[Rfam]
RNA sequence: GCUUGAGUAGCUCAGCUGGUUAGAGCGUGUGGCUGUUAACCACAAGGUCAGAGGUUCAAACCCUCUCUUGAGCG
Dot-bracket structure: (((((((..((((.........)))).(((((.......))))).....(((((.......)))))))))))).
Annotation
tRNA: a 74-nucleotide RNA from Microthlaspi erraticum. The family's consensus secondary structure is taken from published work. From the family's description: Transfer RNA (tRNA) molecules are approximately 80 nucleotides in length. A search with the family's covariance model found it, with a score of 69 bits. By type it is a transfer RNA.